This 190-nucleotide sequence from Parageobacillus caldoxylosilyticus belongs to the Rfam family "Lysine riboswitch aptamer". Rfam's curators write: Riboswitches are metabolite binding domains within certain messenger RNAs that serve as precision sensors for their corresponding targets. It scores 124 bits against the family's covariance model.
RNA sequence: CAUCGAAGUAGAGGUCGCAGCUUUUAUGAGUACGGUAAACGAGACGCAGAGCACGUCAAAGACUUUGCCGGAAAGGAAAAGCUGCCGAAGCCUGAACAUUGCUCUGAAUGUUUGGGCUGGGGUUGUCGCCGAAUAGGGGCAACACUGUCAUGCGCGCACGAAUGUGCACGCAUGGAGCGCUAUCUUCGUG
Numbered sequence: 001c002a003u004c005g006a007a008g009u010a011g012a013g014g015u016c017g018c019a020g021c022u023u024u025u026a027u028g029a030g031u032a033c034g035g036u037a038a039a040c041g042a043g044a045c046g047c048a049g050a051g052c053a054c055g056u057c058a059a060a061g062a063c064u065u066u067g068c069c070g071g072a073a074a075g076g077a078a079a080a081g082c083u084g085c086c087g088a089a090g091c092c093u094g095a096a097c098a099u100u101g102c103u104c105u106g107a108a109u110g111u112u113u114g115g116g117c118u119g120g121g122g123u124u125g126u127c128g129c130c131g132a133a134u135a136g137g138g139g140c141a142a143c144a145c146u147g148u149c150a151u152g153c154g155c156g157c158a159c160g161a162a163u164g165u166g167c168a169c170g171c172a173u174g175g176a177g178c179g180c181u182a183u184c185u186u187c188g189u190g
Stems, first nucleotide, its partner, number of pairs: 006185001008183004017085009033070007089118012119146002122143006129136001148175007